RNA sequence: UUGGUUUAAAUCAUUGUGGAUCUACACUUCGAAAAUAGUGACAAUACAAUGGGGUGGGACAUACAUUGAUUUCAUCCAA
Number, nucleotide and partner (000 for none) at each position: 001u079002u078003g077004g076005u000006u074007u000008a072009a071010a070011u069012c068013a067014u000015u065016g064017u063018g062019g000020a000021u000022c057023u056024a055025c053026a000027c051028u000029u049030c000031g047032a000033a000034a000035a000036u000037a000038g000039u000040g000041a000042c000043a000044a000045u000046a000047c031048a000049a029050u000051g027052g000053g025054g000055u024056g023057g022058g000059a000060c000061a000062u018063a017064c016065a015066u000067u013068g012069a011070u010071u009072u008073c000074a006075u000076c004077c003078a002079a001
Record summary
MIR5269 microRNA precursor family: a 79-nucleotide RNA from Medicago truncatula. Lineage of the source: Eukaryota > Tracheophyta > Euphyllophyta > Mesangiospermae > Medicago. It scores 67 bits against the family's covariance model.